[Rfam]
The record is a 93-nucleotide RNA from Rhodoferax ferrireducens, which matches "SucA RNA motif" in Rfam. It is annotated as a cis-regulatory element.
Nucleotides: 093
Base pairs, nucleotide, nucleotide: 002093003092004091006034007033008032009031010030015025016024017023018022036058037057038056039055060088061087062086066082067081068080069079070078071077072076
Number, partner (000 for none) and nucleotide at each position: 001000u002093c003092g004091c005000a006034u007033c008032c009031g010030c011000c012000a013000a014000a015025c016024g017023g018022u019000c020000a021000a022018g023017c024016c025015g026000u027000g028000a029000c030010g031009c032008g033007g034006a035000a036058g037057g038056u039055u040000u041000u042000u043000a044000a045000a046000a047000a048000c049000a050000g051000c052000u053000u054000u055039a056038a057037c058036c059000a060088g061087c062086u063000c064000a065000a066082g067081u068080u069079u070078c071077c072076u073000g074000c075000a076072g077071g078070g079069a080068a081067a082066c083000g084000g085000a086062g087061g088060u089000c090000a091004g092003c093002g

The sequence is in the family's curated seed alignment.
Pairs were carried over by alignment from the consensus structure, which is taken from published work.
The literature on the family includes a 2007 paper in Nucleic Acids Res by Weinberg et al., "Identification of 22 candidate structured RNAs in bacteria using the CMfinder comparative genomics pipeline".
NCBI's taxonomy places the organism under Bacteria, Burkholderiales, Comamonadaceae, Rhodoferax, Rhodoferax ferrireducens.